[Rfam]
RNA sequence: UGACGACCGUUCCUCCUGCCGCUUCGAGAUCUGGCGGCUAGGAUUUUAGGUUGUCACAGAUCAUAGCGGGUCUUUUUCACCCAGAGUUUGUGAGGUGGCGGGUGCUGCCCCUGUGAACGCUGGAAUUUGCGGGACCCAACACGC
Numbered sequence: 001u002g003a004c005g006a007c008c009g010u011u012c013c014u015c016c017u018g019c020c021g022c023u024u025c026g027a028g029a030u031c032u033g034g035c036g037g038c039u040a041g042g043a044u045u046u047u048a049g050g051u052u053g054u055c056a057c058a059g060a061u062c063a064u065a066g067c068g069g070g071u072c073u074u075u076u077u078c079a080c081c082c083a084g085a086g087u088u089u090g091u092g093a094g095g096u097g098g099c100g101g102g103u104g105c106u107g108c109c110c111c112u113g114u115g116a117a118c119g120c121u122g123g124a125a126u127u128u129g130c131g132g133g134a135c136c137c138a139a140c141a142c143g144c
Stems, first nucleotide, its partner, number of pairs: 001056008014043005020036004069136006081123004086118005094110002098108002
RNA: Small nucleolar RNA SNORA79